RNA sequence: GGUGUUUGGAAUGCAGUUUGAUCCAAGAUCUGCCUAUAUAUAUGGUGUGUAUAUCAUAUCUUGUGAUAUGGGGGAUAUGCAACAGGUGUGUGACAGGGGUAGGUAGAUCUCGGAUCAGGCUUCAUUCCUCACACC
Number, nucleotide and partner (000 for none) at each position: 001g135002g134003u133004g132005u131006u000007u000008g128009g127010a126011a125012u124013g123014c000015a000016g120017u119018u118019u117020g116021a115022u000023c000024c112025a000026a110027g109028a108029u107030c106031u105032g104033c103034c102035u101036a100037u099038a000039u000040a000041u000042a000043u000044g000045g000046u000047g000048u000049g000050u000051a000052u000053a000054u000055c000056a000057u000058a000059u000060c000061u000062u000063g000064u000065g000066a000067u000068a000069u000070g000071g000072g000073g000074g000075a000076u000077a000078u000079g000080c000081a000082a000083c000084a000085g000086g000087u000088g000089u000090g000091u000092g000093a000094c000095a000096g000097g000098g000099g037100u036101a035102g034103g033104u032105a031106g030107a029108u028109c027110u026111c000112g024113g000114a000115u021116c020117a019118g018119g017120c016121u000122u000123c013124a012125u011126u010127c009128c008129u000130c000131a005132c004133a003134c002135c001

Shown here is a 135-nucleotide sequence from Oryza sativa, a member of the family "mir-166 microRNA precursor family". A reference for the family is Reinhart et al. (2002), "MicroRNAs in plants", Genes Dev. About the family: This family represents the plant microRNA (miRNA) precursor mir-166. NCBI's taxonomy places the organism under Eukaryota, Tracheophyta, Euphyllophyta, commelinids, Oryza sativa. The family has 31 seed sequences and 2,599 matches in Rfam 15.1.